[Rfam]
RNA sequence: AUUAUGGCUAGGCUGGGAAGUUAGGCGUCUCCUGUAACUCGAAAUCGCCUUUGCGAGAGCUGAAAACUUGGGGGCGGCUUAAAAUCGUACCUUCCAUUCCCAAGUCCUGUAUUGACAUCUCGUCCUUUGGGGUACGAUGGAGAAGGAGUCUUUUCUGGAAGGAAAAGCUAAACCUUCCUAAUCUUUCGAACCCCGUCAGGCCCGGAAGGGAGCAGCGGUAGGAAGAACUUCAACGCUCAGAGGGUUGCGGGAUAGAGCAGGAUUUGGGGUUAAGUGGUUGUUACGAUUUUUUGCCCACCCCAACGAUGCCUUUUU
Numbered sequence: 001a002u003u004a005u006g007g008c009u010a011g012g013c014u015g016g017g018a019a020g021u022u023a024g025g026c027g028u029c030u031c032c033u034g035u036a037a038c039u040c041g042a043a044a045u046c047g048c049c050u051u052u053g054c055g056a057g058a059g060c061u062g063a064a065a066a067c068u069u070g071g072g073g074g075c076g077g078c079u080u081a082a083a084a085u086c087g088u089a090c091c092u093u094c095c096a097u098u099c100c101c102a103a104g105u106c107c108u109g110u111a112u113u114g115a116c117a118u119c120u121c122g123u124c125c126u127u128u129g130g131g132g133u134a135c136g137a138u139g140g141a142g143a144a145g146g147a148g149u150c151u152u153u154u155c156u157g158g159a160a161g162g163a164a165a166a167g168c169u170a171a172a173c174c175u176u177c178c179u180a181a182u183c184u185u186u187c188g189a190a191c192c193c194c195g196u197c198a199g200g201c202c203c204g205g206a207a208g209g210g211a212g213c214a215g216c217g218g219u220a221g222g223a224a225g226a227a228c229u230u231c232a233a234c235g236c237u238c239a240g241a242g243g244g245u246u247g248c249g250g251g252a253u254a255g256a257g258c259a260g261g262a263u264u265u266g267g268g269g270u271u272a273a274g275u276g277g278u279u280g281u282u283a284c285g286a287u288u289u290u291u292u293g294c295c296c297a298c299c300c301c302a303a304c305g306a307u308g309c310c311u312u313u314u315u
Stems, first nucleotide, its partner, number of pairs: 001315001004312001006310003011061004015033004020028002038057004068303006076295003081289002085286005091280001094277003098269013112255001117253007124243008132234002136231002139228001140179001142177005148169001150167007182226006193218004201210003
About this RNA:
The record is a 315-nucleotide sequence from Methanococcus vannielii, which matches "Archaeal signal recognition particle RNA" in Rfam. On this family, see Wild et al., Curr Opin Struct Biol 2002: "Towards the structure of the mammalian signal recognition particle". It is annotated as a non-coding RNA gene.